RNA sequence: GUCGCAAGUUCAAGGCCACAGCAGAAGUAUUCAUGGUGAGGCCCUGUCAGAUUCCAAUGAAUCUGCAAAUUCUGCU
Numbered sequence: 001g002u003c004g005c006a007a008g009u010u011c012a013a014g015g016c017c018a019c020a021g022c023a024g025a026a027g028u029a030u031u032c033a034u035g036g037u038g039a040g041g042c043c044c045u046g047u048c049a050g051a052u053u054c055c056a057a058u059g060a061a062u063c064u065g066c067a068a069a070u071u072c073u074g075c076u
Stems, first nucleotide, its partner, number of pairs: 014043004020076007028038002048065007
The family of this 76-nucleotide RNA sequence from Crocodylus porosus is "Mammalian CPEB3 ribozyme". A search with the family's covariance model found it, with a score of 52 bits. Pairs were carried over by alignment from the consensus structure, which is taken from published work.